[Rfam]
The family of this 169-nucleotide RNA sequence from Pelotomaculum thermopropionicum is "Group II catalytic intron D1-D4-3". The pairing is the family consensus, mapped onto this sequence. Rfam describes the family as follows. Group II introns are found in rRNA, tRNA and mRNA of organelles in fungi, plants and protists, and also in mRNA in bacteria. The family has 406 seed sequences and 4,274 matches in Rfam 15.1.
RNA sequence: UCACUGGUAACGGUGAGGUCUGAAGGAAGUCGAAGGGGGAACUUGGAACAUAGCGAAAGCGAACCGGCGUUGGCUACUCAGGUGGGUAACCUUGCAUUAAGUGGGAAAGCCCAAAAGCUGGAUAAUCUGAGAAGUUAAGACGGAUGCGUUCAAGUUCAGGCAAGCAGAC
Numbered sequence: 001u002c003a004c005u006g007g008u009a010a011c012g013g014u015g016a017g018g019u020c021u022g023a024a025g026g027a028a029g030u031c032g033a034a035g036g037g038g039g040a041a042c043u044u045g046g047a048a049c050a051u052a053g054c055g056a057a058a059g060c061g062a063a064c065c066g067g068c069g070u071u072g073g074c075u076a077c078u079c080a081g082g083u084g085g086g087u088a089a090c091c092u093u094g095c096a097u098u099a100a101g102u103g104g105g106a107a108a109g110c111c112c113a114a115a116a117g118c119u120g121g122a123u124a125a126u127c128u129g130a131g132a133a134g135u136u137a138a139g140a141c142g143g144a145u146g147c148g149u150u151c152a153a154g155u156u157c158a159g160g161c162a163a164g165c166a167g168a169c
Base pairs, nucleotide, nucleotide: 001016002015003014004013005012006011029169030168031167037161041155042154043153044152045151046150049146050145051144064143065142066141068139073135074134075133077131078130079129080128081127082126083125084112085111086110087109090105091104092103